Rfam assigns this 95-nucleotide RNA from Hordeum vulgare to the family "Small nucleolar RNA Z119". Lineage of the source: Eukaryota > Magnoliopsida > commelinids > Triticodae > Hordeum vulgare. A reference for the family is Chen et al. (2003), "The high diversity of snoRNAs in plants: identification and comparative study of 120 snoRNA genes from Oryza sativa", Nucleic Acids Res. Rfam classes the family as a C/D-box small nucleolar RNA.
RNA sequence: GCUUGGAGAUGAUGAUCAUCAGAGGCUGUUUCUGAGGACGAGCCUAUAGCUCUCCCUAUGUUGCCAAAUAACUGAUUUGCCUAUCUGAUCCAAAG
Numbered sequence: 001g002c003u004u005g006g007a008g009a010u011g012a013u014g015a016u017c018a019u020c021a022g023a024g025g026c027u028g029u030u031u032c033u034g035a036g037g038a039c040g041a042g043c044c045u046a047u048a049g050c051u052c053u054c055c056c057u058a059u060g061u062u063g064c065c066a067a068a069u070a071a072c073u074g075a076u077u078u079g080c081c082u083a084u085c086u087g088a089u090c091c092a093a094a095g
Stems, first nucleotide, its partner, number of pairs: 003093005040052004063080002066077002